[Rfam]
Nucleotides: 129
Base pairs, nucleotide, nucleotide: 003037004036005035006034007033008032013030014029015028016027017026018025044079045078046077047076048075050073051072052071053070056067097124098123099122101120102119103118104117105116106115107114108113
Number, partner (000 for none) and nucleotide at each position: 001000g002000u003037u004036a005035c006034c007033u008032u009000u010000a011000a012000u013030u014029c015028a016027g017026u018025c019000c020000u021000g022000u023000g024000a025018g026017a027016c028015u029014g030013g031000c032008a033007a034006g035005g036004u037003g038000a039000a040000a041000a042000a043000g044079u045078a046077g047076a048075u049000a050073u051072g052071u053070c054000a055000u056067u057000c058000a059000a060000u061000u062000c063000u064000a065000c066000a067056a068000u069000g070053g071052a072051u073050g074000a075048a076047u077046c078045u079044a080000u081000u082000u083000a084000c085000u086000c087000a088000u089000c090000u091000a092000a093000a094000c095000a096000c097124a098123g099122a100000u101120c102119c103118c104117u105116u106115g107114c108113c109000a110000a111000u112000u113108g114107g115106u116105a117104a118103g119102g120101g121000u122099u123098u124097u125000u126000u127000u128000a129000u
The record is a 129-nucleotide sequence from Cerasibacillus quisquiliarum, which matches "PyrR binding site" in Rfam. The organism belongs to Cerasibacillus, within Bacteria. A search with the family's covariance model found it, with a score of 61 bits. By type it is a cis-regulatory element.